[Rfam]
RNA sequence: GGAUCGUGAGGACGGAAAGACUUCCGUCGCCGGUGUGGAAAUCCAGGAGCUUGUCGACCUGGCACGGUUC
Numbered sequence: 001g002g003a004u005c006g007u008g009a010g011g012a013c014g015g016a017a018a019g020a021c022u023u024c025c026g027u028c029g030c031c032g033g034u035g036u037g038g039a040a041a042u043c044c045a046g047g048a049g050c051u052u053g054u055c056g057a058c059c060u061g062g063c064a065c066g067g068u069u070c
Base pairs, nucleotide, nucleotide: 001070002069003068004067005066006065007064008063011028012027013026014025015024019055020054021053030038043062044061045060046059047058
Background:
Rfam assigns this 70-nucleotide sequence to the family "skipping-rope RNA". The sequence is in the family's curated seed alignment.